[Rfam]
RNA sequence: UAAGGAGGCAUCCAAAGGGAUCGCAUUGAUCCUAAAUCUCAUAUAACCAAACAUUUGACCGAUCGAGUUGGGAUCAUGCUAUCCUUUUGGAUUCUUUCUU
Numbered sequence: 001u002a003a004g005g006a007g008g009c010a011u012c013c014a015a016a017g018g019g020a021u022c023g024c025a026u027u028g029a030u031c032c033u034a035a036a037u038c039u040c041a042u043a044u045a046a047c048c049a050a051a052c053a054u055u056u057g058a059c060c061g062a063u064c065g066a067g068u069u070g071g072g073a074u075c076a077u078g079c080u081a082u083c084c085u086u087u088u089g090g091a092u093u094c095u096u097u098c099u100u
Stems, first nucleotide, its partner, number of pairs: 002100005008094001010092012023079004028075005036068001
The record is a 100-nucleotide RNA sequence from Mikania micrantha, which matches "mir-393 microRNA precursor family" in Rfam. Lineage of the source: Eukaryota > Euphyllophyta > campanulids > Asteraceae > Mikania. The base pairs follow the family's consensus structure. It scores 81 bits against the family's covariance model.